[Rfam]
RNA sequence: GUGACAGAAGAGAGUGAGCACACAUGGUGACUUUCCUGCAUGAUUUCAUGUUUGAAGCUGUGUGUGCUUACUCUCUCUAUCUGUCAC
Numbered sequence: 001g002u003g004a005c006a007g008a009a010g011a012g013a014g015u016g017a018g019c020a021c022a023c024a025u026g027g028u029g030a031c032u033u034u035c036c037u038g039c040a041u042g043a044u045u046u047c048a049u050g051u052u053u054g055a056a057g058c059u060g061u062g063u064g065u066g067c068u069u070a071c072u073c074u075c076u077c078u079a080u081c082u083g084u085c086a087c
Stems, first nucleotide, its partner, number of pairs: 001087008010077003013072009023062003